[Rfam]
RNA sequence: GGUCAGUGAUGAAAAGAGCCAAAUCUGAGCAUCAGAAGAUGUUCCGGUCUACCUGAUGCAUGAUCUCUGCAGUUCUGAGA
Number, nucleotide and partner (000 for none) at each position: 001g000002g000003u000004c000005a000006g000007u000008g000009a000010u000011g000012a000013a000014a000015a000016g000017a000018g000019c000020c000021a000022a000023a000024u000025c000026u000027g000028a000029g059030c058031a057032u056033c055034a000035g000036a000037a050038g049039a048040u047041g000042u000043u000044c000045c000046g000047g040048u039049c038050u037051a000052c000053c000054u000055g033056a032057u031058g030059c029060a000061u000062g000063a000064u000065c000066u000067c000068u000069g000070c000071a000072g000073u000074u000075c000076u000077g000078a000079g000080a000

The family of this 80-nucleotide RNA sequence from Rousettus aegyptiacus is "Small nucleolar RNA U2-19". The family has 29 seed sequences and 1,147 matches in Rfam 15.1. Pairs were carried over by alignment from the consensus structure, which is taken from published work. The source organism's lineage runs through Eukaryota, Laurasiatheria, Chiroptera, Pteropodidae and Rousettus. It is annotated as a C/D-box small nucleolar RNA. Rfam links the family to the GO terms nucleolus and RNA processing.